[Rfam]
RNA sequence: GAUCAUGAGUCCCAACGCAAAGCUCUGGCUGGUUGGGCGGCAACCCUCUUUCCGUAGCGGGGUGCCCCAGAUGAGGAUCCGGCCGUGUCGCGUCCGCGAACGGCAAGUACGGCGC
Numbered sequence: 001g002a003u004c005a006u007g008a009g010u011c012c013c014a015a016c017g018c019a020a021a022g023c024u025c026u027g028g029c030u031g032g033u034u035g036g037g038c039g040g041c042a043a044c045c046c047u048c049u050u051u052c053c054g055u056a057g058c059g060g061g062g063u064g065c066c067c068c069a070g071a072u073g074a075g076g077a078u079c080c081g082g083c084c085g086u087g088u089c090g091c092g093u094c095c096g097c098g099a100a101c102g103g104c105a106a107g108u109a110c111g112g113c114g115c
Base pairs, nucleotide, nucleotide: 001079002078003077004076009038011037012036013035014034015033016032021030022029039066040065041064044062045061046060048057049056082104083103084102085101086100088099089098090097091096